[Rfam]
RNA sequence: CUGCACCUGACAUUAGUUUAGUCCUGCUUUCUUAUCAAUAUAGUAGGAUGUUAAAACUGGUGCAUAAAGGAAGAUCUGCUCUUGAAGCAGUGGCGGCCAGACAACCGUGCGGAUAGAUCCACAGAUAAACAGCCUUUCUGUUGCUUGUCUACUAAUUCUAUCUCACAUUA
Numbered sequence: 001c002u003g004c005a006c007c008u009g010a011c012a013u014u015a016g017u018u019u020a021g022u023c024c025u026g027c028u029u030u031c032u033u034a035u036c037a038a039u040a041u042a043g044u045a046g047g048a049u050g051u052u053a054a055a056a057c058u059g060g061u062g063c064a065u066a067a068a069g070g071a072a073g074a075u076c077u078g079c080u081c082u083u084g085a086a087g088c089a090g091u092g093g094c095g096g097c098c099a100g101a102c103a104a105c106c107g108u109g110c111g112g113a114u115a116g117a118u119c120c121a122c123a124g125a126u127a128a129a130c131a132g133c134c135u136u137u138c139u140g141u142u143g144c145u146u147g148u149c150u151a152c153u154a155a156u157u158c159u160a161u162c163u164c165a166c167a168u169u170a
Stems, first nucleotide, its partner, number of pairs: 002064005013056001017055005022048007030040001111163007128146002
Dot-bracket structure: .(((((......(...((((((((((((.(.........).)))))))..))))))...)))))..............................................(((((((..........((...............))..........))))))).......
RNA: small nucleolar RNA snoR143